[Rfam]
RNA sequence: AGUCAAACUGAAGGACCCUCCUAACGGCGCAGUCGGGAUGUCGUCAGCUGCAAUCAAGUUCGCCGAGCUUUUGGUACAACUGCACAGAUGAUGGGUCUUGGCUAUUUCUCGUACGACCACGGAUUGAUCGUCCACUCUGAUGUUGGGAAGAGGAUCGGCAAUUGAUUGGCGCUACCCACGGCUCCGGGACCCAUCUAGAGUUGGAGUCAAAGCUUCGUGCUUGGCCGGUCCAUGGGCAAACCUAUCUGCUUCUUCCUCAUCUCGACAGGAGCUUGGGCGGAUCGUCUUGGACUCUAAGGAGCGGACAGGCCAAUGGAAGGUAGUCCUGGUUGUUGUCGCUCCAGAAAUGGCGGGACGACAACCCC
Numbered sequence: 001a002g003u004c005a006a007a008c009u010g011a012a013g014g015a016c017c018c019u020c021c022u023a024a025c026g027g028c029g030c031a032g033u034c035g036g037g038a039u040g041u042c043g044u045c046a047g048c049u050g051c052a053a054u055c056a057a058g059u060u061c062g063c064c065g066a067g068c069u070u071u072u073g074g075u076a077c078a079a080c081u082g083c084a085c086a087g088a089u090g091a092u093g094g095g096u097c098u099u100g101g102c103u104a105u106u107u108c109u110c111g112u113a114c115g116a117c118c119a120c121g122g123a124u125u126g127a128u129c130g131u132c133c134a135c136u137c138u139g140a141u142g143u144u145g146g147g148a149a150g151a152g153g154a155u156c157g158g159c160a161a162u163u164g165a166u167u168g169g170c171g172c173u174a175c176c177c178a179c180g181g182c183u184c185c186g187g188g189a190c191c192c193a194u195c196u197a198g199a200g201u202u203g204g205a206g207u208c209a210a211a212g213c214u215u216c217g218u219g220c221u222u223g224g225c226c227g228g229u230c231c232a233u234g235g236g237c238a239a240a241c242c243u244a245u246c247u248g249c250u251u252c253u254u255c256c257u258c259a260u261c262u263c264g265a266c267a268g269g270a271g272c273u274u275g276g277g278c279g280g281a282u283c284g285u286c287u288u289g290g291a292c293u294c295u296a297a298g299g300a301g302c303g304g305a306c307a308g309g310c311c312a313a314u315g316g317a318a319g320g321u322a323g324u325c326c327u328g329g330u331u332g333u334u335g336u337c338g339c340u341c342c343a344g345a346a347a348u349g350g351c352g353g354g355a356c357g358a359c360a361a362c363c364c365c
Stems, first nucleotide, its partner, number of pairs: 188208003191204003210222004
The record is a 365-nucleotide part of an RNA from Sodiomyces alkalinus, which matches "Ascomycota telomerase RNA" in Rfam. Rfam links the family to the GO terms telomerase activity, telomere maintenance via telomerase and telomerase catalytic core complex. The family's RNA type in Rfam is non-coding RNA gene. A search with the family's covariance model found it, with a score of 368 bits. The family has 4 seed sequences and 475 matches in Rfam 15.1. The base pairs follow the family's consensus structure.